[Rfam]
RNA sequence: GCGCAGUUACACAGCUUGCAUUUCGGUGUCCACUCUCUCCGUUUCCCUUCCCAUGAUGGCUAGCCUUGAGUAAGUACAUAUGUUUUGAACACAUGUAUGCUUGCUUAAAAUCCUUUGUCGGAGGGAAUCGGAAAGAGUGUACAAUGAAUUGCAAGCUUGAUUGAUUCG
Numbered sequence: 001g002c003g004c005a006g007u008u009a010c011a012c013a014g015c016u017u018g019c020a021u022u023u024c025g026g027u028g029u030c031c032a033c034u035c036u037c038u039c040c041g042u043u044u045c046c047c048u049u050c051c052c053a054u055g056a057u058g059g060c061u062a063g064c065c066u067u068g069a070g071u072a073a074g075u076a077c078a079u080a081u082g083u084u085u086u087g088a089a090c091a092c093a094u095g096u097a098u099g100c101u102u103g104c105u106u107a108a109a110a111u112c113c114u115u116u117g118u119c120g121g122a123g124g125g126a127a128u129c130g131g132a133a134a135g136a137g138u139g140u141a142c143a144a145u146g147a148a149u150u151g152c153a154a155g156c157u158u159g160a161u162u163g164a165u166u167c168g
Stems, first nucleotide, its partner, number of pairs: 013157008022148004027143003031139006038132004043127008068102005074096002

The record is a 168-nucleotide sequence from Physcomitrium patens, which matches "MIR1023 microRNA precursor family" in Rfam.
It is one of the family's seed sequences.
Rfam 15.1 lists 5 matches to the family in 3 species.
Pairs were carried over by alignment from the consensus structure, which was predicted with RNAalifold.
Taxonomically the source falls in Physcomitrium (Eukaryota, Streptophyta, Embryophyta, Bryopsida).